[Rfam]
RNA: glmS glucosamine-6-phosphate activated ribozyme aptamer
RNA sequence: ACUAUAAUUGAAGCGCUGGUACUUGCGGCAAGCCGCAAGUAGACGAGGAAGAGGUUUAUCGAGUCGGUCAGCGGAUGCCUCUCGGCUUACUGCGGUCGUAAACAGUCGACAAAACCGCCGGGUGACCGGUGGGACAAAACGCCUGUGGCAGUUAA
Numbered sequence: 001a002c003u004a005u006a007a008u009u010g011a012a013g014c015g016c017u018g019g020u021a022c023u024u025g026c027g028g029c030a031a032g033c034c035g036c037a038a039g040u041a042g043a044c045g046a047g048g049a050a051g052a053g054g055u056u057u058a059u060c061g062a063g064u065c066g067g068u069c070a071g072c073g074g075a076u077g078c079c080u081c082u083c084g085g086c087u088u089a090c091u092g093c094g095g096u097c098g099u100a101a102a103c104a105g106u107c108g109a110c111a112a113a114a115c116c117g118c119c120g121g122g123u124g125a126c127c128g129g130u131g132g133g134a135c136a137a138a139a140c141g142c143c144u145g146u147g148g149c150a151g152u153u154a155a
Stems, first nucleotide, its partner, number of pairs: 020041008050082005059071001061069002083098005103145003107141002115132007